[Rfam]
RNA sequence: CUCAAUGAUGAGCUCUUUUUGGAAUCUCGUUCGGCUGAAUAUUGCUGUUGAGACUUUAACUCUGAAGCUU
Numbered sequence: 001c002u003c004a005a006u007g008a009u010g011a012g013c014u015c016u017u018u019u020u021g022g023a024a025u026c027u028c029g030u031u032c033g034g035c036u037g038a039a040u041a042u043u044g045c046u047g048u049u050g051a052g053a054c055u056u057u058a059a060c061u062c063u064g065a066a067g068c069u070u
Stems, first nucleotide, its partner, number of pairs: 025053005032047004

The family of this 70-nucleotide RNA sequence from Pelodiscus sinensis is "Small nucleolar RNA SNORD30".
A reference for the family is Tycowski et al. (1996), "A mammalian gene with introns instead of exons generating stable RNA products", Nature.
The family has 20 seed sequences and 367 matches in Rfam 15.1.